RNA sequence: AAAAUUCUUCGGGGUAGGGUGUAAUUCCCAACCGGCGGUAAAGUCCGCGACCCGUCAGGAGAGUACAUUCUCAUGGCGGCUGAACCGGUGUGAUUCCGGUACCGACAGUACAGUCUGGAUGAGAGAAGAAUCAU
Number, nucleotide and partner (000 for none) at each position: 001a000002a000003a000004a131005u130006u129007c128008u127009u126010c125011g000012g000013g000014g000015u000016a000017g029018g028019g027020u000021g000022u000023a000024a000025u000026u000027c019028c018029c017030a000031a114032c113033c104034g103035g048036c047037g046038g045039u000040a000041a000042a000043g102044u101045c038046c037047g036048c035049g000050a000051c000052c079053c078054g077055u076056c075057a074058g000059g000060a000061g000062a000063g000064u000065a000066c000067a000068u000069u000070c000071u000072c000073a000074u057075g056076g055077c054078g053079g052080c000081u000082g000083a000084a100085c099086c098087g097088g096089u000090g000091u000092g000093a000094u000095u000096c088097c087098g086099g085100u084101a044102c043103c034104g033105a000106c117107a116108g115109u000110a000111c000112a000113g032114u031115c108116u107117g106118g000119a000120u000121g000122a000123g000124a000125g010126a009127a008128g007129a006130a005131u004132c000133a000134u000
FMN riboswitch aptamer (RFN element): a 134-nucleotide RNA sequence from Dorea sp. CAG:317.